[Rfam]
RNA sequence: UCUCUGUCGCUCAGCUUUCGACAUGAUUCUGAACAAUUCCACACAUUUAUGUUGUUGAGAUCAUUAGUUGAAAGCCGAAUGAUUCGAGC
Numbered sequence: 001u002c003u004c005u006g007u008c009g010c011u012c013a014g015c016u017u018u019c020g021a022c023a024u025g026a027u028u029c030u031g032a033a034c035a036a037u038u039c040c041a042c043a044c045a046u047u048u049a050u051g052u053u054g055u056u057g058a059g060a061u062c063a064u065u066a067g068u069u070g071a072a073a074g075c076c077g078a079a080u081g082a083u084u085c086g087a088g089c
Stems, first nucleotide, its partner, number of pairs: 002088003007082003011078002014075009023064005029059002032056006
Record summary: Shown here is an 89-nucleotide RNA sequence from Caenorhabditis japonica, a member of the family "mir-80 microRNA precursor family". Rfam 15.1 lists 8 matches to the family in 8 species. The literature on the family includes a 2011 paper in RNA by Warf et al., "Improved annotation of C. elegans microRNAs by deep sequencing reveals structures associated with processing by Drosha and Dicer". The organism belongs to Caenorhabditis, within Eukaryota. Rfam links the family to the GO terms RISC complex and miRNA-mediated post-transcriptional gene silencing.